[Rfam]
RNA: MIR828 microRNA precursor family
Organism: Brassica oleracea
RNA sequence: UAAAUGUUUCUUGCUUAAAUGAGUAUUCCAUGGAAGGGAUUCACUCACAUUUAAUAAUAUACCUAAUAUGAGUGGAUUUCUCUUCAUGAGGUGCUCAUUUGAGCAAGCAAUGUUUG
Numbered sequence: 001u002a003a004a005u006g007u008u009u010c011u012u013g014c015u016u017a018a019a020u021g022a023g024u025a026u027u028c029c030a031u032g033g034a035a036g037g038g039a040u041u042c043a044c045u046c047a048c049a050u051u052u053a054a055u056a057a058u059a060u061a062c063c064u065a066a067u068a069u070g071a072g073u074g075g076a077u078u079u080c081u082c083u084u085c086a087u088g089a090g091g092u093g094c095u096c097a098u099u100u101g102a103g104c105a106a107g108c109a110a111u112g113u114u115u116g
Stems, first nucleotide, its partner, number of pairs: 004113005010107018029088002